[Rfam]
RNA sequence: CGGGGAGGCUUCCUUGUCCGUUAUCCAUGGAGCACUCGGUCAUGCUGUGGGAAUGUAUUCCUUAGACACGUUUGUUGUCGCUGGUAUGAUGUGAGGGCAGGUUAGAUGCCUA
Numbered sequence: 001c002g003g004g005g006a007g008g009c010u011u012c013c014u015u016g017u018c019c020g021u022u023a024u025c026c027a028u029g030g031a032g033c034a035c036u037c038g039g040u041c042a043u044g045c046u047g048u049g050g051g052a053a054u055g056u057a058u059u060c061c062u063u064a065g066a067c068a069c070g071u072u073u074g075u076u077g078u079c080g081c082u083g084g085u086a087u088g089a090u091g092u093g094a095g096g097g098c099a100g101g102u103u104a105g106a107u108g109c110c111u112a
Stems, first nucleotide, its partner, number of pairs: 001020004008033002011031003035095004039090008049062005065079004099111004
About this RNA: Shown here is a 112-nucleotide RNA sequence from Peribacillus faecalis, a member of the family "epsC RNA". By type it is a cis-regulatory element. The family has 30 seed sequences and 450 matches in Rfam 15.1. The organism belongs to Peribacillus, within Bacteria.